[Rfam]
RNA sequence: AGCGAAGAAAGGAGGUGUUCCGGAAGUGAUUUCUUCUCGGACUCGUGAGGUGACUGCGGGCUGACGCCCGUCGUCGCGCUCUUUGCAGUGCAGGCCGGUCGCCGGCCAAUCCCAAGCAGUCACCGACCCGCAGGCUCGCCGGUAAGUCCGGCCGGCUCCUCCGCAAGGAGGGACCAGAGCCUGCGGGUUUCUGCAU
Numbered sequence: 001a002g003c004g005a006a007g008a009a010a011g012g013a014g015g016u017g018u019u020c021c022g023g024a025a026g027u028g029a030u031u032u033c034u035u036c037u038c039g040g041a042c043u044c045g046u047g048a049g050g051u052g053a054c055u056g057c058g059g060g061c062u063g064a065c066g067c068c069c070g071u072c073g074u075c076g077c078g079c080u081c082u083u084u085g086c087a088g089u090g091c092a093g094g095c096c097g098g099u100c101g102c103c104g105g106c107c108a109a110u111c112c113c114a115a116g117c118a119g120u121c122a123c124c125g126a127c128c129c130g131c132a133g134g135c136u137c138g139c140c141g142g143u144a145a146g147u148c149c150g151g152c153c154g155g156c157u158c159c160u161c162c163g164c165a166a167g168g169a170g171g172g173a174c175c176a177g178a179g180c181c182u183g184c185g186g187g188u189u190u191c192u193g194c195a196u
Base pairs, nucleotide, nucleotide: 015057016056017055019053059107060106061105062104063103065101068098069097070096072094125189126188127187128186129185130184131183132182133181134180135179136178138156139155140154141153142152143151

Shown here is a 196-nucleotide sequence from Streptomyces sp. ADI93-02, a member of the family "Actinobacteria sRNA Ms_IGR-5".
Rfam classes the family as a small RNA.
A reference for the family is Li et al. (2013), "Identification of small RNAs in Mycobacterium smegmatis using heterologous Hfq", RNA.
NCBI's taxonomy places the organism under Bacteria, Bacillati, Actinomycetes, Streptomycetaceae, Streptomyces.
Pairs were carried over by alignment from the consensus structure.